A member of the RNA family "U1 spliceosomal RNA" from Cebus imitator, 162 nucleotides long. The organism belongs to Cebus, within Eukaryota. The family's consensus secondary structure is taken from published work.
RNA sequence: GAAAGAACCUGGCAGGGGAGAUACCAUGAUCACAAAGGUGGUUUUCCCAGAGAGAGGCUUAUCCAUUGCACUCCGGAUGUGCUGACCCCUGUGAUUUCCCCAAAUGUGGGAAACUCGACUGCAUAAUUUGUGGUAGUGGGAGACUGCAUUGGCACUUUCCCU
Numbered sequence: 001g002a003a004a005g006a007a008c009c010u011g012g013c014a015g016g017g018g019a020g021a022u023a024c025c026a027u028g029a030u031c032a033c034a035a036a037g038g039u040g041g042u043u044u045u046c047c048c049a050g051a052g053a054g055a056g057g058c059u060u061a062u063c064c065a066u067u068g069c070a071c072u073c074c075g076g077a078u079g080u081g082c083u084g085a086c087c088c089c090u091g092u093g094a095u096u097u098c099c100c101c102a103a104a105u106g107u108g109g110g111a112a113a114c115u116c117g118a119c120u121g122c123a124u125a126a127u128u129u130g131u132g133g134u135a136g137u138g139g140g141a142g143a144c145u146g147c148a149u150u151g152g153c154a155c156u157u158u159c160c161c162u
Stems, first nucleotide, its partner, number of pairs: 012122004016048006023042005049090002052087001054086001056083003060079005092117003095113003099109002138161006145154003